The record is a 76-nucleotide sequence from Ameiurus melas, which matches "mir-7563 microRNA precursor family" in Rfam. The match comes from Rfam's covariance-model search (81 bits).
RNA sequence: ACCGCAUACUUACCUACUAUAUAGUAGCUGAGAUACACGUAUUACACCUGCUAUAUAAUAGGUAAGUAUGCGGUUU
Numbered sequence: 001a002c003c004g005c006a007u008a009c010u011u012a013c014c015u016a017c018u019a020u021a022u023a024g025u026a027g028c029u030g031a032g033a034u035a036c037a038c039g040u041a042u043u044a045c046a047c048c049u050g051c052u053a054u055a056u057a058a059u060a061g062g063u064a065a066g067u068a069u070g071c072g073g074u075u076u
Base pairs, nucleotide, nucleotide: 001074002073003072004071005070006069007068008067009066010065011064012063013062014061015060018057019056020055021054022053023052024051025050026049027048029046030045033042034041035040